[Rfam]
RNA sequence: CGACCCCGUGCGGGAGAGUCCCUGGGCCUCGGUCCUGGGGCGCCGAAGGAGCAACCCUCCCCGGAAUCUCUCAGGCAUCCCGUACCGCUCGGGCGAG
Numbered sequence: 001c002g003a004c005c006c007c008g009u010g011c012g013g014g015a016g017a018g019u020c021c022c023u024g025g026g027c028c029u030c031g032g033u034c035c036u037g038g039g040g041c042g043c044c045g046a047a048g049g050a051g052c053a054a055c056c057c058u059c060c061c062c063g064g065a066a067u068c069u070c071u072c073a074g075g076c077a078u079c080c081c082g083u084a085c086c087g088c089u090c091g092g093g094c095g096a097g
Stems, first nucleotide, its partner, number of pairs: 006092003010088004020040006042076003045072002049070003055064002
Dot-bracket structure: .....(((.((((......((((((.........)))))).(((((..(((...((......))...))))).)))........)))).))).....

Glycine riboswitch aptamer: a 97-nucleotide sequence from Nonomuraea sp. WAC 01424. A search with the family's covariance model found it, with a score of 61 bits. About the family: This family represents the bacterial glycine riboswitch.